[Rfam]
RNA sequence: CCAAUUGGAGAUGAAGAACUUGUCUCAUACGUACUCGCUGGCUUAGACAUUGAGUUUAUUCCUCUUGUCUCUGCCAUCGUUGUAUGUGUGGAGCCAAUCUCCGUGGCUGAGUUGUUCUCUCAGCUGCUUGGCUUCGAGU
Numbered sequence: 001c002c003a004a005u006u007g008g009a010g011a012u013g014a015a016g017a018a019c020u021u022g023u024c025u026c027a028u029a030c031g032u033a034c035u036c037g038c039u040g041g042c043u044u045a046g047a048c049a050u051u052g053a054g055u056u057u058a059u060u061c062c063u064c065u066u067g068u069c070u071c072u073g074c075c076a077u078c079g080u081u082g083u084a085u086g087u088g089u090g091g092a093g094c095c096a097a098u099c100u101c102c103g104u105g106g107c108u109g110a111g112u113u114g115u116u117c118u119c120u121c122a123g124c125u126g127c128u129u130g131g132c133u134u135c136g137a138g139u
Base pairs, nucleotide, nucleotide: 005137006136007135008134092108093107094106095105096104
RNA: Small nucleolar RNA Z247
Organism: Panicum miliaceum